[Rfam]
RNA: TPP riboswitch aptamer (THI element)
Organism: Ornithinibacillus hominis
RNA sequence: GAAAACUACUAGGGGCGCUUUUGCUGAGAUAAGGUAUAUCCUUUGUCCCUUAAUAACCUGAUCUAGGUAAUGCUAGCGAAGGGAAGUAGUUGAGGCCGCAU
Number, nucleotide and partner (000 for none) at each position: 001g000002a000003a000004a000005a000006c089007u088008a087009c086010u085011a051012g050013g049014g048015g000016c045017g024018c023019u000020u000021u000022u000023g018024c017025u000026g000027a000028g000029a000030u000031a044032a043033g042034g041035u000036a000037u000038a000039u000040c000041c034042u033043u032044u031045g016046u000047c000048c014049c013050u012051u011052a000053a000054u000055a000056a000057c082058c081059u080060g000061a000062u000063c076064u075065a074066g073067g000068u000069a000070a000071u000072g000073c066074u065075a064076g063077c000078g000079a000080a059081g058082g057083g000084a000085a010086g009087u008088a007089g006090u000091u000092g000093a000094g000095g000096c000097c000098g000099c000100a000101u000